[Rfam]
RNA sequence: GUCAUCCAUUCGACACACUCGCGGGCAGGAGCGGGGGACCCAAGGUAAGUCGCCGCACCGGACCCCACCGGAGCGGCUAGGGGUGAAGCCGUGCCCGUCAGGGCACGGCCGGGCACCUCCCCGCCCGAACCCGACAGCUCACCUCGCAGGCGUCAGGAGAGGGAUCA
Dot-bracket structure: ....(((....................)))((((((....(......................................)(((.....((((((........))))))..((((........))))...))).........))))))....................

Shown here is a 167-nucleotide sequence from Streptomyces sp. SID8352, a member of the family "c-di-AMP riboswitch aptamer (ydaO/yuaA leader)". Its family is annotated with cyclic-di-AMP binding and regulation of gene expression in the Gene Ontology.